[Rfam]
RNA sequence: GAUUAACCAAGUGACGCAAUUCUCCUCCCGGUGUCCUUGGCUUUGGACUGGCAACACCCUCCUCCCGGUUGCUGGUCAGUUUCAAGCAGCCCGGCCUUCCUCCUCCCAGGCCGGGCUGUCUGC
Numbered sequence: 001g002a003u004u005a006a007c008c009a010a011g012u013g014a015c016g017c018a019a020u021u022c023u024c025c026u027c028c029c030g031g032u033g034u035c036c037u038u039g040g041c042u043u044u045g046g047a048c049u050g051g052c053a054a055c056a057c058c059c060u061c062c063u064c065c066c067g068g069u070u071g072c073u074g075g076u077c078a079g080u081u082u083c084a085a086g087c088a089g090c091c092c093g094g095c096c097u098u099c100c101u102c103c104u105c106c107c108a109g110g111c112c113g114g115g116c117u118g119u120c121u122g123c
Base pairs, nucleotide, nucleotide: 007040008039009038011036013035014034015033016032017031046077047076048075049074050073051072052071053070054069055068087118088117089116090115091114092113093112094111095110096109097108
Shown here is a 123-nucleotide RNA from Allorhizobium borbori, a member of the family "Alphaproteobacterial ar14". About the family: Smr14C2 was renamed NfeR1 (Nodule Formation Efficiency RNA) highly expressed in salt stress and during the symbiotic interaction on legume roots. The literature on the family includes a 2012 paper in RNA Biol by del Val et al., "A survey of sRNA families in alpha-proteobacteria". The family's RNA type in Rfam is small RNA. Pairs were carried over by alignment from the consensus structure.